[Rfam]
Description: The record is a 125-nucleotide sequence from Streptomyces purpureus, which matches "Streptomyces RNA 3920" in Rfam. NCBI's taxonomy places the organism under Bacteria, Bacillati, Kitasatosporales, Streptomycetaceae, Streptomyces. From the family's description: Identified by deep sequencing of transcriptome at the end of exponential growth phase. It scores 125 bits against the family's covariance model. The literature on the family includes a 2011 paper in RNA Biol by Vockenhuber et al., "Deep sequencing-based identification of small non-coding RNAs in Streptomyces coelicolor".

Nucleotides: 125
Stems, first nucleotide, its partner, number of pairs: 001014005015051004021032003033045004058076001060074002063070002077084002085121013099106001
Number, partner (000 for none) and nucleotide at each position: 001014g002013a003012u004011a005010g006000g007000u008000c009000u010005c011004u012003g013002u014001c015051g016050c017049u018048a019000c020000c021032g022031u023030g024000a025000u026000u027000g028000g029000a030023c031022a032021c033045u034044g035043a036042c037000g038000c039000u040000g041000a042036g043035u044034c045033a046000a047000c048018u049017a050016g051015c052000c053000u054000u055000g056000u057000u058076c059000a060074c061073g062000c063070g064069g065000u066000c067000u068000u069064c070063c071000a072000c073061c074060g075000c076058g077084c078083g079000g080000a081000a082000c083078c084077g085121g086120g087119c088118g089117g090116u091115c092114c093113g094112a095111g096110c097109c098000a099106c100000g101000a102000g103000g104000g105000g106099g107000g108000a109097g110096g111095c112094u113093c114092g115091g116090a117089c118088c119087g120086c121085c122000c123000u124000u125000u